[Rfam]
RNA sequence: GUUGCUUCAUAAUGGUGAACUCCUUUAUAUUUACACAAUGAAGGAUGAUUCAAGUUUCCGGAGCAUAGAUUAAAUUUAUUUAAAUAAUACCAGUAUUAAACAGCAUUGUGUAUUCAUAUUCAUUACACUUUGUUACCUGUCUUCUGGCUAUAUUU
Number, nucleotide and partner (000 for none) at each position: 001g000002u000003u065004g064005c063006u062007u061008c060009a000010u000011a000012a000013u000014g000015g000016u052017g051018a050019a049020c047021u045022c044023c043024u042025u041026u000027a000028u000029a000030u000031u000032u000033a000034c000035a000036c000037a000038a000039u000040g000041a025042a024043g023044g022045a021046u000047g020048a000049u019050u018051c017052a016053a000054g000055u000056u000057u000058c000059c000060g008061g007062a006063g005064c004065a003066u000067a000068g000069a000070u000071u000072a000073a000074a000075u000076u000077u000078a000079u000080u000081u000082a000083a000084a000085u000086a000087a000088u000089a149090c147091c146092a145093g144094u000095a142096u000097u000098a000099a000100a000101c000102a134103g133104c132105a000106u000107u000108g128109u127110g126111u000112a000113u000114u000115c000116a000117u000118a000119u000120u000121c000122a000123u000124u000125a000126c110127a109128c108129u000130u000131u000132g104133u103134u102135a000136c000137c000138u000139g000140u000141c000142u095143u000144c093145u092146g091147g090148c000149u089150a000151u000152a000153u000154u000155u000

The record is a 155-nucleotide RNA from Coptis chinensis, which matches "small nucleolar RNA snoR137" in Rfam.
By type it is an H/ACA-box small nucleolar RNA.
For this family Rfam cites "Mining small RNA sequencing data: a new approach to identify small nucleolar RNAs in Arabidopsis" (Chen and Wu, Nucleic Acids Res, 2009).
Lineage of the source: Eukaryota > Tracheophyta > Euphyllophyta > Ranunculaceae > Coptis.